This 54-nucleotide RNA from Croceicoccus sp. YJ47 belongs to the Rfam family "sul1 RNA". Rfam 15.1 lists 519 matches to the family in 480 species. Pairs were carried over by alignment from the consensus structure, which is taken from published work. Taxonomically the source falls in Croceicoccus (Bacteria, Pseudomonadota, Alphaproteobacteria, Erythrobacteraceae).
[Rfam]
RNA sequence: AUCGGACCCGGCCGCGCCGGGUGGCUCGGCCCGGCGCCUAUCCCCGGGACAACC
Number, nucleotide and partner (000 for none) at each position: 001a000002u000003c000004g000005g000006a022007c021008c020009c019010g018011g017012c000013c000014g000015c000016g000017c011018c010019g009020g008021g007022u006023g000024g000025c000026u000027c000028g000029g000030c048031c047032c046033g045034g044035c000036g000037c000038c000039u000040a000041u000042c000043c000044c034045c033046g032047g031048g030049a000050c000051a000052a000053c000054c000